Overview:
The family of this 188-nucleotide RNA from Klebsiella pneumoniae is "GlmZ RNA activator of glmS mRNA". Clan: Glm clan. About the family: This RNA was discovered in E. coli during a large scale screen. The sraJ gene was expressed in early logarithmic phase, but its level decreased with cell growth. Specific cleavage products of this RNA were found. Identified in Yersinia pseudotuberculosis as Ysr248/153/sR016. A reference for the family is Argaman et al. (2001), "Novel small RNA-encoding genes in the intergenic regions of Escherichia coli", Curr Biol. It scores 62 bits against the family's covariance model. The organism belongs to Klebsiella pneumoniae subsp. pneumoniae, within Bacteria.
RNA sequence: GUGGCUCAUUCACCUUCUUAUGUCAGCCCCUUCGGGACGCGCUACAUAAACUUCGAAUGACGCACAAACAGGUGCCUGCCGUCCAACUCCUGAUAACAGCCUGGCUUUAUCAGACAUCGGGCGAAACGUCGAGUAAGGCACCGCCUCAUUCCUGAACAAAGCCAGGCCUUGCGCCUGGCUUUGUUGUU
Numbered sequence: 001g002u003g004g005c006u007c008a009u010u011c012a013c014c015u016u017c018u019u020a021u022g023u024c025a026g027c028c029c030c031u032u033c034g035g036g037a038c039g040c041g042c043u044a045c046a047u048a049a050a051c052u053u054c055g056a057a058u059g060a061c062g063c064a065c066a067a068a069c070a071g072g073u074g075c076c077u078g079c080c081g082u083c084c085a086a087c088u089c090c091u092g093a094u095a096a097c098a099g100c101c102u103g104g105c106u107u108u109a110u111c112a113g114a115c116a117u118c119g120g121g122c123g124a125a126a127c128g129u130c131g132a133g134u135a136a137g138g139c140a141c142c143g144c145c146u147c148a149u150u151c152c153u154g155a156a157c158a159a160a161g162c163c164a165g166g167c168c169u170u171g172c173g174c175c176u177g178g179c180u181u182u183g184u185u186g187u188u
Base pairs, nucleotide, nucleotide: 004063005062006060007059008058009057014055016048019044024041071142072141073140074139075138076137077136081122082121083120084119092111093110094109095108157183158182159181160180161179162178163177164176165175166174167173